[Rfam]
Record summary:
TPP riboswitch aptamer (THI element): a 103-nucleotide RNA from Sulfitobacter sabulilitoris. The organism belongs to Sulfitobacter, within Bacteria. A search with the family's covariance model found it, with a score of 74 bits. The family's consensus secondary structure is taken from published work.
RNA sequence: GAGCAUACCUCGGGGGGCCUUUUCUGGCUGAGAUGUGCACAUGCACGGACCCGUUGAACCUGAACCGGUUAACACCGGCGGAGGGAAGGUCUGGACAUCUACU
Numbered sequence: 001g002a003g004c005a006u007a008c009c010u011c012g013g014g015g016g017g018c019c020u021u022u023u024c025u026g027g028c029u030g031a032g033a034u035g036u037g038c039a040c041a042u043g044c045a046c047g048g049a050c051c052c053g054u055u056g057a058a059c060c061u062g063a064a065c066c067g068g069u070u071a072a073c074a075c076c077g078g079c080g081g082a083g084g085g086a087a088g089g090u091c092u093g094g095a096c097a098u099c100u101a102c103u
Stems, first nucleotide, its partner, number of pairs: 007090004011053004017028003035046004059084003065078004